[Rfam]
RNA: Purine riboswitch aptamer
Organism: Marinithermofilum abyssi
RNA sequence: UCCAGUAUAUCGAUCCUUUCUCAUAUAUGCUCGGGAAUAUGGCCCGAGUGUCUCUACCCGGAAACCGUAAAUUUCCGGACUAUGGGAAAGCCAACCCUUUGG
Numbered sequence: 001u002c003c004a005g006u007a008u009a010u011c012g013a014u015c016c017u018u019u020c021u022c023a024u025a026u027a028u029g030c031u032c033g034g035g036a037a038u039a040u041g042g043c044c045c046g047a048g049u050g051u052c053u054c055u056a057c058c059c060g061g062a063a064a065c066c067g068u069a070a071a072u073u074u075c076c077g078g079a080c081u082a083u084g085g086g087a088a089a090g091c092c093a094a095c096c097c098u099u100u101g102g
Base pairs, nucleotide, nucleotide: 018088019087020086021085022084023083024082025081029049030048031047032046033045034044035043058078059077060076061075062074063073064072